[Rfam]
RNA sequence: GACUUACUGUGUGUGCCGAGUUUAAGCCGUGAGGCGAAGGCGAAGCGAAAGCGAGUCUGAAGAGGGCGAAUAGGCGCACGUAGUAGACCCGAAACCAGAUGAGCUAGCCAUGGCCAGGAUGAAGCUCUCGUAACGGGGAGUGGAGGUCCGAACCCGUUGAGGUUGAAAACUCUUGGGAUGAGCUGUGGUUAGGAGUGAAAAGCUAACCGAAUCUGGAGAUAGCUGGUU
Numbered sequence: 001g002a003c004u005u006a007c008u009g010u011g012u013g014u015g016c017c018g019a020g021u022u023u024a025a026g027c028c029g030u031g032a033g034g035c036g037a038a039g040g041c042g043a044a045g046c047g048a049a050a051g052c053g054a055g056u057c058u059g060a061a062g063a064g065g066g067c068g069a070a071u072a073g074g075c076g077c078a079c080g081u082a083g084u085a086g087a088c089c090c091g092a093a094a095c096c097a098g099a100u101g102a103g104c105u106a107g108c109c110a111u112g113g114c115c116a117g118g119a120u121g122a123a124g125c126u127c128u129c130g131u132a133a134c135g136g137g138g139a140g141u142g143g144a145g146g147u148c149c150g151a152a153c154c155c156g157u158u159g160a161g162g163u164u165g166a167a168a169a170c171u172c173u174u175g176g177g178a179u180g181a182g183c184u185g186u187g188g189u190u191a192g193g194a195g196u197g198a199a200a201a202g203c204u205a206a207c208c209g210a211a212u213c214u215g216g217a218g219a220u221a222g223c224u225g226g227u228u
Base pairs, nucleotide, nucleotide: 005085006084007083008082009081010080011079012078013077014076015075016074017073020041021040022039023038026035027034028033045052046051055067056066057065058064088226089225091223095216096215097214098213099212100211104192105191106190107189108188109187110186111185112184113183114182115180117149118148119147120146124141125140126139127138128137129136153177154176155175159172160171161170194204195203196202
RNA: Bacterial large subunit ribosomal RNA, nucleotides 618 to 845
Organism: Truepera radiovictrix